The family of this 492-nucleotide part of an RNA from Lepeophtheirus salmonis is "Eukaryotic large subunit ribosomal RNA".
It is one of the family's seed sequences.
The base pairs follow the family's consensus structure, which is taken from published work.
Its Rfam clan is "LSU clan".
Taxonomically the source falls in Lepeophtheirus (Eukaryota, Metazoa, Podoplea, Caligidae).
The family has 88 seed sequences and 107,465 matches in Rfam 15.1.

[Rfam]
RNA sequence: CCCUCUGAAAUUUCUCUCAGGAUAGCAGGAACAGAUUAUGCAGUUUUAUCAGGUAAAGCUAAUGAUUAGUGGAAUCGGGGGUCCGUGAUCCUUGACCAAUUCUCAAACUUUAAAUUGGUAAGAACCAUGAGUUUUCUUAAUUGAACUUAGGGGCAGAAUGCAUUGUUCUUAGUGGGCCAUUUUUGGUAAGCAGAACUGGCGAUGAGGGAUGAACCUAACGUUGAGAUAAGGUGCCCAAAUUCACGCUCAUGAGAUACCAUAAAAGGUGUUGGUUAGUAUAAACAGCCGGACUGUGGCCAUGGAAGUCGGCACCAGCUAAGGAGUGUGUAACAACUCACCAGCCGAAUUAACCAGCCCUGAAAAUUGAUGGCGCUAAGCGUGAUACCGAUACUCAACCACCAAAGCAAAUAGAAGCAUUGGUGAGUAAGAGGGCGUGAGGACUGUGUAGAAGGCUUGGAUGUGAAUCCGGCUGGAACAGUCUUUAGUGCAGAU
Numbered sequence: 001c002c003c004u005c006u007g008a009a010a011u012u013u014c015u016c017u018c019a020g021g022a023u024a025g026c027a028g029g030a031a032c033a034g035a036u037u038a039u040g041c042a043g044u045u046u047u048a049u050c051a052g053g054u055a056a057a058g059c060u061a062a063u064g065a066u067u068a069g070u071g072g073a074a075u076c077g078g079g080g081g082u083c084c085g086u087g088a089u090c091c092u093u094g095a096c097c098a099a100u101u102c103u104c105a106a107a108c109u110u111u112a113a114a115u116u117g118g119u120a121a122g123a124a125c126c127a128u129g130a131g132u133u134u135u136c137u138u139a140a141u142u143g144a145a146c147u148u149a150g151g152g153g154c155a156g157a158a159u160g161c162a163u164u165g166u167u168c169u170u171a172g173u174g175g176g177c178c179a180u181u182u183u184u185g186g187u188a189a190g191c192a193g194a195a196c197u198g199g200c201g202a203u204g205a206g207g208g209a210u211g212a213a214c215c216u217a218a219c220g221u222u223g224a225g226a227u228a229a230g231g232u233g234c235c236c237a238a239a240u241u242c243a244c245g246c247u248c249a250u251g252a253g254a255u256a257c258c259a260u261a262a263a264a265g266g267u268g269u270u271g272g273u274u275a276g277u278a279u280a281a282a283c284a285g286c287c288g289g290a291c292u293g294u295g296g297c298c299a300u301g302g303a304a305g306u307c308g309g310c311a312c313c314a315g316c317u318a319a320g321g322a323g324u325g326u327g328u329a330a331c332a333a334c335u336c337a338c339c340a341g342c343c344g345a346a347u348u349a350a351c352c353a354g355c356c357c358u359g360a361a362a363a364u365u366g367a368u369g370g371c372g373c374u375a376a377g378c379g380u381g382a383u384a385c386c387g388a389u390a391c392u393c394a395a396c397c398a399c400c401a402a403a404g405c406a407a408a409u410a411g412a413a414g415c416a417u418u419g420g421u422g423a424g425u426a427a428g429a430g431g432g433c434g435u436g437a438g439g440a441c442u443g444u445g446u447a448g449a450a451g452g453c454u455u456g457g458a459u460g461u462g463a464a465u466c467c468g469g470c471u472g473g474a475a476c477a478g479u480c481u482u483u484a485g486u487g488c489a490g491a492u
Stems, first nucleotide, its partner, number of pairs: 001432006011024001013022003027170007044123008056111001057109002063105003068100001070098003075095006082088001125152002128149006176200004181195005205216003220396005230386003239383001241382001244379003264358003268355010285342002288339002291315003296310003316320001321336001325334002397422006404415002433487001435484010451471002457466003